A member of the RNA family "Bacterial large subunit ribosomal RNA" from Desulfolithobacter dissulfuricans, 360 nucleotides of a longer RNA. A search with the family's covariance model found it, with a score of 2988 bits.

RNA sequence: UGAGAGAACUCUGGUUAAGGAACUCGGCAAAAUAGCACCGUAACUUCGGGAGAAGGUGUGCCUCUGAUGGUGAAGGGACUUGCUUCUGGAGCUGUCGGAGGUUGCAGUGAAAUGGGGGGAGCGACUGUUUACUAAAAACACAGGACUCUGCGAAGUCGUAAGACGAUGUAUAGGGUCUGACGCCUGCCCGGUGCCGGAAGGUUAAGGGGACGUGUUAGCUUUGGCGAAGCACCGAACCGAAGCCCCGGUAAACGGCGGCCGUAACUAUAACGGUCCUAAGGUAGCGAAAUUCCUUGUCGGGUAAGUUCCGACCUGCACGAAUGGCGUAACGAUUUCCCCACUGUCUCAACCAGAGACUCA
Numbered sequence: 001u002g003a004g005a006g007a008a009c010u011c012u013g014g015u016u017a018a019g020g021a022a023c024u025c026g027g028c029a030a031a032a033u034a035g036c037a038c039c040g041u042a043a044c045u046u047c048g049g050g051a052g053a054a055g056g057u058g059u060g061c062c063u064c065u066g067a068u069g070g071u072g073a074a075g076g077g078a079c080u081u082g083c084u085u086c087u088g089g090a091g092c093u094g095u096c097g098g099a100g101g102u103u104g105c106a107g108u109g110a111a112a113u114g115g116g117g118g119g120a121g122c123g124a125c126u127g128u129u130u131a132c133u134a135a136a137a138a139c140a141c142a143g144g145a146c147u148c149u150g151c152g153a154a155g156u157c158g159u160a161a162g163a164c165g166a167u168g169u170a171u172a173g174g175g176u177c178u179g180a181c182g183c184c185u186g187c188c189c190g191g192u193g194c195c196g197g198a199a200g201g202u203u204a205a206g207g208g209g210a211c212g213u214g215u216u217a218g219c220u221u222u223g224g225c226g227a228a229g230c231a232c233c234g235a236a237c238c239g240a241a242g243c244c245c246c247g248g249u250a251a252a253c254g255g256c257g258g259c260c261g262u263a264a265c266u267a268u269a270a271c272g273g274u275c276c277u278a279a280g281g282u283a284g285c286g287a288a289a290u291u292c293c294u295u296g297u298c299g300g301g302u303a304a305g306u307u308c309c310g311a312c313c314u315g316c317a318c319g320a321a322u323g324g325c326g327u328a329a330c331g332a333u334u335u336c337c338c339c340a341c342u343g344u345c346u347c348a349a350c351c352a353g354a355g356a357c358u359c360a
Base pairs, nucleotide, nucleotide: 001360002359003358004357009355010354011353012352013351014350015349016348018346019345020344035059036058037057038056039055044049060102061101062100063099064098065097066096067095068094069093070092071091103107115339116338117337118336119335120334121333122331123330126140127139128138143178144177145176146175147174148173149172150171151168155164156163157162181326182325183324184323186256187255188254191253192252193249194248195247196246197245200244201243202242206238207237212232213231214230215229218225219224257275258274259273260272261271262270276280286313296312297311298310299309300308301307